The record is a 109-nucleotide sequence from Papaver somniferum, which matches "Small nucleolar RNA Z103" in Rfam. Taxonomically the source falls in Papaver (Eukaryota, Embryophyta, Tracheophyta, Papaveraceae). Rfam links the family to the GO terms RNA processing and nucleolus.
[Rfam]
RNA sequence: AUGGACGUGAUGAUCCUUUCCCCAGCUGAUCGACUAAGAUUAUAAUAUGCGUUUUGUUUAAAUCUCGUUCUCAACAGAAGAGGUUUUCCAAGCCAGUACUCUGAUCCAU
Numbered sequence: 001a002u003g004g005a006c007g008u009g010a011u012g013a014u015c016c017u018u019u020c021c022c023c024a025g026c027u028g029a030u031c032g033a034c035u036a037a038g039a040u041u042a043u044a045a046u047a048u049g050c051g052u053u054u055u056g057u058u059u060a061a062a063u064c065u066c067g068u069u070c071u072c073a074a075c076a077g078a079a080g081a082g083g084u085u086u087u088c089c090a091a092g093c094c095a096g097u098a099c100u101c102u103g104a105u106c107c108a109u
Stems, first nucleotide, its partner, number of pairs: 001109005
Dot-bracket structure: (((((...................................................................................................)))))